[Rfam]
RNA sequence: GGUGUGUUUAUGAUGACCUGACUCUAAACUCUGAACGAGGGAUCAGGCCUGAUGUCCCACAAC
Dot-bracket structure: (.(((.........(.(((((.((....(((.....))))).))))).).........))).)
Selenocysteine insertion sequence 1: a 63-nucleotide RNA sequence from Muraenolepis orangiensis.
It scores 36 bits against the family's covariance model.
The source organism's lineage runs through Eukaryota, Bilateria, Euteleostomi, Eurypterygia and Muraenolepis.